[Rfam]
RNA sequence: UUAACCAUAAGAGGCGCGUCGCACAGGCAGGGUGUGUGAGAAUCCGUUUUCCCGUGACCACACCUCAGGGGGAGCGAUGCCGAGACGAUAGCGGGCAUACGGGCCGGCCGCCGUCGACCACAGGGGCUGAAUCCCCUGGGUUGUCACCAGCAUUAUUCGCCACCAGGCGAUCAGCACAGUGGGGCGCUUCUGGGUGU
Numbered sequence: 001u002u003a004a005c006c007a008u009a010a011g012a013g014g015c016g017c018g019u020c021g022c023a024c025a026g027g028c029a030g031g032g033u034g035u036g037u038g039a040g041a042a043u044c045c046g047u048u049u050u051c052c053c054g055u056g057a058c059c060a061c062a063c064c065u066c067a068g069g070g071g072g073a074g075c076g077a078u079g080c081c082g083a084g085a086c087g088a089u090a091g092c093g094g095g096c097a098u099a100c101g102g103g104c105c106g107g108c109c110g111c112c113g114u115c116g117a118c119c120a121c122a123g124g125g126g127c128u129g130a131a132u133c134c135c136c137u138g139g140g141u142u143g144u145c146a147c148c149a150g151c152a153u154u155a156u157u158c159g160c161c162a163c164c165a166g167g168c169g170a171u172c173a174g175c176a177c178a179g180u181g182g183g184g185c186g187c188u189u190c191u192g193g194g195u196g197u
Base pairs, nucleotide, nucleotide: 006192007191009189010188011187016080017079018078019077020076021075022074024072030065031064032063033062034061035060036059084115085114086113087112089110091108092107094105095104116142117141118140119139121138122137123136124135125134126133144182145181146180147179
Source information
A member of the RNA family "Lysine riboswitch aptamer" from Sodalis glossinidius, 197 nucleotides long. The family's consensus secondary structure is taken from published work. About the family: Riboswitches are metabolite binding domains within certain messenger RNAs that serve as precision sensors for their corresponding targets. It scores 72 bits against the family's covariance model.